RNA sequence: AAAAGUGAAGAUAGCAAACCUCGUAUAAAGUUGGGAAUAUGGCCCAAAAGUUUCUACCCAGUGACCGUAAAUUACUGGACUAUGAGGGGAAGUUAAUCGCAC
Numbered sequence: 001a002a003a004a005g006u007g008a009a010g011a012u013a014g015c016a017a018a019c020c021u022c023g024u025a026u027a028a029a030g031u032u033g034g035g036a037a038u039a040u041g042g043c044c045c046a047a048a049a050g051u052u053u054c055u056a057c058c059c060a061g062u063g064a065c066c067g068u069a070a071a072u073u074a075c076u077g078g079a080c081u082a083u084g085a086g087g088g089g090a091a092g093u094u095a096a097u098c099g100c101a102c
Stems, first nucleotide, its partner, number of pairs: 019087007031047005058078007
This 102-nucleotide RNA sequence from Gottfriedia endophytica belongs to the Rfam family "Purine riboswitch aptamer". Rfam links the family to the GO term purine nucleobase biosynthetic process.